[Rfam]
RNA sequence: UGGGCUGCCCAAAGGGGGGCCCGCGCGGUCGGCGGGUGCCGGCAGGCAUCCGACGAUGGGAAAACCUGUAUCCAUGUUGCUCCAAGGAGGAUGUGGCUAUGAGAA
Numbered sequence: 001u002g003g004g005c006u007g008c009c010c011a012a013a014g015g016g017g018g019g020c021c022c023g024c025g026c027g028g029u030c031g032g033c034g035g036g037u038g039c040c041g042g043c044a045g046g047c048a049u050c051c052g053a054c055g056a057u058g059g060g061a062a063a064a065c066c067u068g069u070a071u072c073c074a075u076g077u078u079g080c081u082c083c084a085a086g087g088a089g090g091a092u093g094u095g096g097c098u099a100u101g102a103g104a105a
Base pairs, nucleotide, nucleotide: 001023002022003021004020005019006018008017009016030055031054033052034051035050036049037048038047039046065103067101068100069099070098072096073095074094075093076092077091078090080089081088082087
Dot-bracket structure: ((((((.((......))))))))......((.(((((((......))))))).)).........(.((((.(((((((.(((....)))))))))).)))).)..

The family of this 105-nucleotide RNA sequence from Nordella sp. HKS 07 is "Repression of heat shock gene expression (ROSE) element". Taxonomically the source falls in Nordella (Bacteria, Pseudomonadati, Alphaproteobacteria, Hyphomicrobiales). A search with the family's covariance model found it, with a score of 54 bits. Pairs were carried over by alignment from the consensus structure, which is taken from published work. The literature on the family includes a 2004 paper in J Bacteriol by Balsiger et al., "Replicon-specific regulation of small heat shock genes in Agrobacterium tumefaciens". Rfam describes the family as follows. This family represents a 5' UTR cis-regulatory element found in heat shock mRNAs and is known as the ROSE (repression of heat shock gene expression) element. The ROSE element is a negative regulator of heat shock gene expression. Rfam classes the family as an RNA thermoregulator.